[Rfam]
RNA sequence: AUCACUUCUCAGCCUUUUGGCUAAGAUCAAGUAUACUAUCUGUUCUUAUCAGCUAAUAUCUUAUAUGUUCUCUUUCCGAGGACAAUAUUAAAUGGACUGUUGGAAAUAGCAGAUAGAACAUAAGUUUGUUUUGUCUACUCCAUACAUUAACCUGGCAUUGCAGUACUGCCAAGAGACAGAGAGAGAGAA
Number, nucleotide and partner (000 for none) at each position: 001a000002u000003c000004a000005c000006u000007u026008c025009u024010c000011a022012g021013c020014c019015u000016u000017u000018u000019g014020g013021c012022u011023a000024a009025g008026a007027u000028c000029a000030a000031g000032u000033a000034u000035a000036c000037u000038a000039u000040c000041u000042g000043u000044u000045c000046u000047u065048a064049u063050c000051a061052g060053c000054u000055a000056a000057u000058a000059u000060c052061u051062u000063a049064u048065a047066u000067g083068u082069u081070c080071u079072c078073u000074u000075u000076c000077c000078g072079a071080g070081g069082a068083c067084a000085a000086u000087a000088u000089u000090a000091a000092a000093u000094g000095g000096a000097c000098u000099g000100u000101u000102g000103g000104a000105a000106a000107u000108a000109g141110c000111a139112g138113a000114u000115a000116g134117a000118a000119c000120a000121u000122a131123a130124g129125u000126u000127u000128g000129u124130u123131u122132u000133g000134u116135c000136u000137a000138c112139u111140c000141c109142a000143u000144a000145c181146a000147u179148u178149a000150a000151c173152c000153u171154g170155g169156c168157a000158u000159u000160g000161c000162a000163g000164u000165a000166c000167u000168g156169c155170c154171a153172a000173g151174a000175g000176a000177c000178a148179g147180a000181g145182a000183g000184a000185g000186a000187g000188a000189a000
Shown here is a 189-nucleotide RNA from Nomascus leucogenys, a member of the family "U2 spliceosomal RNA". The organism belongs to Nomascus, within Eukaryota. It scores 109 bits against the family's covariance model. Rfam's curators write: U2 is a small nuclear RNA (snRNA) component of the spliceosome (involved in pre-mRNA splicing). Complementary binding between U2 snRNA (in an area lying towards the 5' end but 3' to hairpin I) and the branchpoint sequence (BPS) of the intron results the bulging out of an unpaired adenosine, on the BPS, which initiates a nucleophilic attack at the intronic 5' splice site, thus starting the first of two transesterification reactions that mediate splicing. Its Rfam clan is "U2 clan".